Shown here is a 90-nucleotide sequence from Cobetia sp. UCD-24C, a member of the family "t44 RNA". By type it is a small RNA. The base pairs follow the family's consensus structure, which was predicted with LocARNA. On this family, see Tjaden et al., Nucleic Acids Res 2002: "Transcriptome analysis of Escherichia coli using high-density oligonucleotide probe arrays". About the family: This family consists of a number of bacterial RNA genes of between 135 and 170 bases in length. The t44 gene has been identified in several species of enteric bacteria but homologs have also been identified in Pseudomonas and Coxiella species.
RNA sequence: ACGUACAUAACCCCAAUCCACACACGUUCCGUCACAUGGUCCCGGGUGCCGCGCAAGCGGUCGGAUCCAUGGGGGACGUGGAGGCCCAAC
Numbered sequence: 001a002c003g004u005a006c007a008u009a010a011c012c013c014c015a016a017u018c019c020a021c022a023c024a025c026g027u028u029c030c031g032u033c034a035c036a037u038g039g040u041c042c043c044g045g046g047u048g049c050c051g052c053g054c055a056a057g058c059g060g061u062c063g064g065a066u067c068c069a070u071g072g073g074g075g076a077c078g079u080g081g082a083g084g085c086c087c088a089a090c
Base pairs, nucleotide, nucleotide: 023080024079025078026077027076028075029074030073035071036070037069038068039067040065041064042063048061049060050059051058052057